[Rfam]
RNA sequence: AGCCUUUGUGUUGCCCAUUCACUUUUAGAAACUAGUUAAUGUGGUGUCAGAAAAGGUAUAAACUAAACACUUUGCAGCCCUUUCCUUCCCUUGAAUUUGAUGUCUUUGGUAUAAGAGCAGCAUAAGUAACAGUU
Numbered sequence: 001a002g003c004c005u006u007u008g009u010g011u012u013g014c015c016c017a018u019u020c021a022c023u024u025u026u027a028g029a030a031a032c033u034a035g036u037u038a039a040u041g042u043g044g045u046g047u048c049a050g051a052a053a054a055g056g057u058a059u060a061a062a063c064u065a066a067a068c069a070c071u072u073u074g075c076a077g078c079c080c081u082u083u084c085c086u087u088c089c090c091u092u093g094a095a096u097u098u099g100a101u102g103u104c105u106u107u108g109g110u111a112u113a114a115g116a117g118c119a120g121c122a123u124a125a126g127u128a129a130c131a132g133u134u
Stems, first nucleotide, its partner, number of pairs: 002057006009049002012046004016041004021036003069127004073122003077118002083116002086113001089109002093104002
The family of this 134-nucleotide RNA from Molossus molossus is "Small nucleolar RNA SNORA13". A search with the family's covariance model found it, with a score of 128 bits. The base pairs follow the family's consensus structure, which was predicted with CMfinder. Rfam describes the family as follows. ACA13 is a member of the H/ACA class of snoRNA that guide the sites of modification of uridines to pseudouridines. The family is grouped with related families in Rfam's "SNORA13 clan". Its family is annotated with RNA processing and nucleolus in the Gene Ontology.